[Rfam]
Nucleotides: 143
Base pairs, nucleotide, nucleotide: 003062004061006059007058008057012055013054014053015052019048020047021046023042024041025040026039027038028037083138084137085136086135087134098131100129104127105126106125110121
Number, partner (000 for none) and nucleotide at each position: 001000a002000c003062c004061c005000c006059c007058u008057g009000g010000c011000a012055u013054u014053g015052g016000g017000c018000a019048a020047g021046g022000a023042g024041a025040c026039a027038c028037c029000u030000c031000a032000u033000u034000g035000g036000u037028g038027g039026u040025g041024u042023u043000a044000u045000u046021c047020u048019u049000g050000u051000a052015u053014c054013a055012g056000u057008c058007a059006g060000a061004g062003g063000c064000a065000g066000a067000g068000u069000a070000g071000a072000u073000a074000a075000c076000a077000g078000u079000c080000u081000u082000u083138u084137g085136u086135u087134c088000a089000u090000c091000c092000u093000a094000g095000c096000u097000u098131g099000a100129u101000g102000c103000c104127u105126g106125g107000u108000u109000g110121g111000u112000g113000g114000c115000c116000a117000g118000a119000g120000c121110u122000g123000u124000u125106u126105c127104a128000u129100g130000c131098u132000u133000a134087g135086g136085a137084c138083a139000c140000a141000u142000g143000a